A member of the RNA family "Cripavirus internal ribosome entry site (IRES)" from Triatovirus plastali, 197 nucleotides long. Rfam links the family to the GO term ribosome binding. The source organism's lineage runs through Viruses, Riboviria, Picornavirales, Triatovirus and Triatovirus plastali. The base pairs follow the family's consensus structure, which is taken from published work. It is one of the family's seed sequences. From the family's description: This family represents a Cripavirus internal ribosome entry site (IRES) which is required for the production of capsid proteins through IRES-mediated translation. For this family Rfam cites "A tertiary structure model of the internal ribosome entry site (IRES) for methionine-independent initiation of translation" (Kanamori and Nakashima, RNA, 2001).

RNA sequence: CUGACUAUGUGAUCUUAUUAAAAUUAGGUUAAAUUUCGAGGUUAAAAAUAGUUUUAAUAUUGCUAUAGUCUUAGAGGUCUUGUAUAUUUAUACUUACCACACAAGAUGGACCGGAGCAGCCCUCCAAUAUCUAGUGUACCCUCGUGCUCGCUCAAACAUUAAGUGGUGUUGUGCGAAAAGAAUCUCACUUCAAGAAA
Numbered sequence: 001c002u003g004a005c006u007a008u009g010u011g012a013u014c015u016u017a018u019u020a021a022a023a024u025u026a027g028g029u030u031a032a033a034u035u036u037c038g039a040g041g042u043u044a045a046a047a048a049u050a051g052u053u054u055u056a057a058u059a060u061u062g063c064u065a066u067a068g069u070c071u072u073a074g075a076g077g078u079c080u081u082g083u084a085u086a087u088u089u090a091u092a093c094u095u096a097c098c099a100c101a102c103a104a105g106a107u108g109g110a111c112c113g114g115a116g117c118a119g120c121c122c123u124c125c126a127a128u129a130u131c132u133a134g135u136g137u138a139c140c141c142u143c144g145u146g147c148u149c150g151c152u153c154a155a156a157c158a159u160u161a162a163g164u165g166g167u168g169u170u171g172u173g174c175g176a177a178a179a180g181a182a183u184c185u186c187a188c189u190u191c192a193a194g195a196a197a
Stems, first nucleotide, its partner, number of pairs: 003070007016059009028049001037144004076112005082093004099137004104132004113125004148176004155170005161190005